RNA: Eukaryotic large subunit ribosomal RNA, nucleotides 2685 to 3115
RNA sequence: GAAGACCCUGUUGAGCUUGACUCUAGUUUGACAUUGUGAAAAGACAUAGAGGGUGUAGAAUAGGUGGGAGCGCAAGCGCCGGUGAAAUACCACUACCUUUAUCGUUUUUUUACUUAUUCAAUAAAGCGGAACUGGGUGUCAAAGCCCAACUUCUAGCGUUAAGGUCCUUCGCGGGCUGAUCCGGGUUGAAGACAUUGUCAGGUGGGGAGUUUGGCUGGGGCGGCACAUCUGUUAAACCAUAACGCAGGUGUCCUAAGGGGGACUCAUGGAGAACAGAAAUCUCCAGCAGAACAAAAGGGUAAAAGUCCCCUUGAUUUUGAUUUUCAGUGUGAAUACAAACCAUGAAAGUGUGGCCUAUCGAUCCUUUAGUCCCUCGAAAUUUGAGGCUAGAGGUGCCAGAAAAGUUACCACAGGGAUUACAAUAGUCCCAG
Numbered sequence: 001g002a003a004g005a006c007c008c009u010g011u012u013g014a015g016c017u018u019g020a021c022u023c024u025a026g027u028u029u030g031a032c033a034u035u036g037u038g039a040a041a042a043g044a045c046a047u048a049g050a051g052g053g054u055g056u057a058g059a060a061u062a063g064g065u066g067g068g069a070g071c072g073c074a075a076g077c078g079c080c081g082g083u084g085a086a087a088u089a090c091c092a093c094u095a096c097c098u099u100u101a102u103c104g105u106u107u108u109u110u111u112a113c114u115u116a117u118u119c120a121a122u123a124a125a126g127c128g129g130a131a132c133u134g135g136g137u138g139u140c141a142a143a144g145c146c147c148a149a150c151u152u153c154u155a156g157c158g159u160u161a162a163g164g165u166c167c168u169u170c171g172c173g174g175g176c177u178g179a180u181c182c183g184g185g186u187u188g189a190a191g192a193c194a195u196u197g198u199c200a201g202g203u204g205g206g207g208a209g210u211u212u213g214g215c216u217g218g219g220g221c222g223g224c225a226c227a228u229c230u231g232u233u234a235a236a237c238c239a240u241a242a243c244g245c246a247g248g249u250g251u252c253c254u255a256a257g258g259g260g261g262a263c264u265c266a267u268g269g270a271g272a273a274c275a276g277a278a279a280u281c282u283c284c285a286g287c288a289g290a291a292c293a294a295a296a297g298g299g300u301a302a303a304a305g306u307c308c309c310c311u312u313g314a315u316u317u318u319g320a321u322u323u324u325c326a327g328u329g330u331g332a333a334u335a336c337a338a339a340c341c342a343u344g345a346a347a348g349u350g351u352g353g354c355c356u357a358u359c360g361a362u363c364c365u366u367u368a369g370u371c372c373c374u375c376g377a378a379a380u381u382u383g384a385g386g387c388u389a390g391a392g393g394u395g396c397c398a399g400a401a402a403a404g405u406u407a408c409c410a411c412a413g414g415g416a417u418u419a420c421a422a423u424a425g426u427c428c429c430a431g
Stems, first nucleotide, its partner, number of pairs: 007414004012410002014406005020210004027202007036113010046102007063094005070077002117190005127183004135146003163177005213226001214224003227249006252353002258310006264290002267285006291300002315339003320334004341350003364392006372386004